RNA sequence: UGGCGCCCAACGUGGGGCUGGAAACUGAGGCAGCAGUGAGGGAGACGACGAAAAGAAGAAGGAGCGCGCUCGCUAGACGCUAACCUACUUCGGGACUGCCGUGGGAACCUGCCUCGGCUAAUCGUCCAGAAGUAAGUGGAAUCGUCCGAUUGUGGGGCAAGAAUUGAGCCAGCAUGAAGUGUAUGUUAAAUAGUUAAAAGAGGCUUUAAAGACACGAGGAGUAAAGGUUAAAACCAUAGACUUGUUUAGAUUCUUUGAUUUUGUCAAAGAGACGUGCCCGU
Numbered sequence: 001u002g003g004c005g006c007c008c009a010a011c012g013u014g015g016g017g018c019u020g021g022a023a024a025c026u027g028a029g030g031c032a033g034c035a036g037u038g039a040g041g042g043a044g045a046c047g048a049c050g051a052a053a054a055g056a057a058g059a060a061g062g063a064g065c066g067c068g069c070u071c072g073c074u075a076g077a078c079g080c081u082a083a084c085c086u087a088c089u090u091c092g093g094g095a096c097u098g099c100c101g102u103g104g105g106a107a108c109c110u111g112c113c114u115c116g117g118c119u120a121a122u123c124g125u126c127c128a129g130a131a132g133u134a135a136g137u138g139g140a141a142u143c144g145u146c147c148g149a150u151u152g153u154g155g156g157g158c159a160a161g162a163a164u165u166g167a168g169c170c171a172g173c174a175u176g177a178a179g180u181g182u183a184u185g186u187u188a189a190a191u192a193g194u195u196a197a198a199a200g201a202g203g204c205u206u207u208a209a210a211g212a213c214a215c216g217a218g219g220a221g222u223a224a225a226g227g228u229u230a231a232a233a234c235c236a237u238a239g240a241c242u243u244g245u246u247u248a249g250a251u252u253c254u255u256u257g258a259u260u261u262u263g264u265c266a267a268a269g270a271g272a273c274g275u276g277c278c279c280g281u
Base pairs, nucleotide, nucleotide: 006030007029012025013024036046037045086134087133088132089130090129095125096124100116101115103113104112143157145156146155147154148153165208166207167206168204169203170202215257216256217255218254219253220252221251222250225243226242227241228240229239266281269278
Shown here is a 281-nucleotide RNA sequence from Nannospalax galili, a member of the family "Mason-Pfizer monkey virus packaging signal". This family represents a group of sequences that are related to the Mason-Pfizer monkey virus (MPMV) packaging signal. The packaging signal is located in the 5' UTR and is required for specific RNA encapsidation. The base pairs follow the family's consensus structure, which was predicted with PFOLD. The match comes from Rfam's covariance-model search (166 bits). Taxonomically the source falls in Nannospalax (Eukaryota, Vertebrata, Dipnotetrapodomorpha, Muroidea).